[Rfam]
permuted transfer-messenger RNA: a 212-nucleotide RNA from Richelia sp. RM2_1_2. By type it is a non-coding RNA gene. Rfam's curators write: Bacterial tmRNA, also known as 10Sa RNA or SsrA, is named for its dual tRNA and mRNA-like properties. Gene Ontology term of the family: RNA catabolic process.

RNA sequence: GCUGCUUGAAGCAUUGCAGAAUAGGCUUGUAAGACUCCGGUGCGAUUCCGGACAUCUCCACUUAUGCGGAGACCUAUUUAUCUAGGGGAUGAAUUAGGCUCGAUUACGGCAGUAAAGGCUUUGUUAGGCGUUCGGGUAAGGCCCGUUAUAGGCUUAAAAUUAUAAUUGCAAACGAUAACUUUGCACAGGACGAAUUUUUACUAGCUGCCUAA
Dot-bracket structure: (.(((..........((.........((.(((...(((((.......)))))(((((((.........................)))))))............))).))........))........))).)((((.....))))...................................................................
Numbered sequence: 001g002c003u004g005c006u007u008g009a010a011g012c013a014u015u016g017c018a019g020a021a022u023a024g025g026c027u028u029g030u031a032a033g034a035c036u037c038c039g040g041u042g043c044g045a046u047u048c049c050g051g052a053c054a055u056c057u058c059c060a061c062u063u064a065u066g067c068g069g070a071g072a073c074c075u076a077u078u079u080a081u082c083u084a085g086g087g088g089a090u091g092a093a094u095u096a097g098g099c100u101c102g103a104u105u106a107c108g109g110c111a112g113u114a115a116a117g118g119c120u121u122u123g124u125u126a127g128g129c130g131u132u133c134g135g136g137u138a139a140g141g142c143c144c145g146u147u148a149u150a151g152g153c154u155u156a157a158a159a160u161u162a163u164a165a166u167u168g169c170a171a172a173c174g175a176u177a178a179c180u181u182u183g184c185a186c187a188g189g190a191c192g193a194a195u196u197u198u199u200a201c202u203a204g205c206u207g208c209c210u211a212a
Stems, first nucleotide, its partner, number of pairs: 001132001003130003016119002027109002030106003036052005053091007133145004